[Rfam]
Rfam assigns this 117-nucleotide RNA sequence from Thamnophis sirtalis to the family "U5 spliceosomal RNA". From the family's description: U5 RNA is a component of both types of known spliceosome. The family's RNA type in Rfam is spliceosomal small nuclear RNA. The literature on the family includes a 1997 paper in Nucleic Acids Res by Zwieb, "The uRNA database". The family's consensus secondary structure is taken from published work. The source organism's lineage runs through Eukaryota, Eumetazoa, Sauria, Natricidae and Thamnophis. It scores 70 bits against the family's covariance model.
RNA sequence: CUACUCUGGUUUCUGUUCAGAUCGUAUAAAUAUUUCACCUUUUACUAAAGAUUUCCGUGGAGAGGAACAUUUAUGAGUUUAGCUCCGGCCCUUUGGAAUGAACUCCCCGCGGAGAUU
Numbered sequence: 001c002u003a004c005u006c007u008g009g010u011u012u013c014u015g016u017u018c019a020g021a022u023c024g025u026a027u028a029a030a031u032a033u034u035u036c037a038c039c040u041u042u043u044a045c046u047a048a049a050g051a052u053u054u055c056c057g058u059g060g061a062g063a064g065g066a067a068c069a070u071u072u073a074u075g076a077g078u079u080u081a082g083c084u085c086c087g088g089c090c091c092u093u094u095g096g097a098a099u100g101a102a103c104u105c106c107c108c109g110c111g112g113a114g115a116u117u
Stems, first nucleotide, its partner, number of pairs: 003078004009068006016061004028054004033049003097117001101116001103114004